[Rfam]
A member of the RNA family "MicX Vibrio cholerae sRNA" from Vibrio sp. V28_P6S34P95, 193 nucleotides long.
RNA sequence: AGGAUAAUAAAAAUAGGGCGGCCAUAAGGUCGCCCAUUUGUUCUCUCUUAACACUUUUGGUUUGGCCGCCGAUCAGUUAAGAGUGCACAAGCUUCUGGCGUUACGCAUAGCUGGCUGUUAGCUCUAUUCCUUACUAGCUAAAUGACUAACAGUUUUUGUAACCGGAACCUGAGCCAUGCUCAGGUUUUUUUAU
Numbered sequence: 001a002g003g004a005u006a007a008u009a010a011a012a013a014u015a016g017g018g019c020g021g022c023c024a025u026a027a028g029g030u031c032g033c034c035c036a037u038u039u040g041u042u043c044u045c046u047c048u049u050a051a052c053a054c055u056u057u058u059g060g061u062u063u064g065g066c067c068g069c070c071g072a073u074c075a076g077u078u079a080a081g082a083g084u085g086c087a088c089a090a091g092c093u094u095c096u097g098g099c100g101u102u103a104c105g106c107a108u109a110g111c112u113g114g115c116u117g118u119u120a121g122c123u124c125u126a127u128u129c130c131u132u133a134c135u136a137g138c139u140a141a142a143u144g145a146c147u148a149a150c151a152g153u154u155u156u157u158g159u160a161a162c163c164g165g166a167a168c169c170u171g172a173g174c175c176a177u178g179c180u181c182a183g184g185u186u187u188u189u190u191u192a193u
Stems, first nucleotide, its partner, number of pairs: 016035008039091001040086001045083008057072005100162006113154009166186009